[Rfam]
This 144-nucleotide RNA sequence from Oryctolagus cuniculus belongs to the Rfam family "Small nucleolar RNA SNORA48".
RNA sequence: CACCCCGGCAAUGGGCAAAGAGACACCUCUUUCAUGGUGUUGCUCUUAUAUCAGUCAGGGGCAGAGCAGAUGCACAGUCCUUUGUUCAUCCUAACCUGAUGCCUGUGUUGGUGGCCAGAGCUAUUUCAUGCCUAGAGCACAAAA
Numbered sequence: 001c002a003c004c005c006c007g008g009c010a011a012u013g014g015g016c017a018a019a020g021a022g023a024c025a026c027c028u029c030u031u032u033c034a035u036g037g038u039g040u041u042g043c044u045c046u047u048a049u050a051u052c053a054g055u056c057a058g059g060g061g062c063a064g065a066g067c068a069g070a071u072g073c074a075c076a077g078u079c080c081u082u083u084g085u086u087c088a089u090c091c092u093a094a095c096c097u098g099a100u101g102c103c104u105g106u107g108u109u110g111g112u113g114g115c116c117a118g119a120g121c122u123a124u125u126u127c128a129u130g131c132c133u134a135g136a137g138c139a140c141a142a143a144a
Stems, first nucleotide, its partner, number of pairs: 003061004008056001012053003018047003022041006083139005098132001100130001104128002109123002112120001
About this RNA:
Its Rfam clan is "SNORA48 clan". Rfam describes the family as follows. The snoRNA ACA 48 has been identified to guide pseudouridylation of the residue U3797 in the 28S rRNA subunit. The match comes from Rfam's covariance-model search (66 bits). Its family is annotated with nucleolus and RNA processing in the Gene Ontology.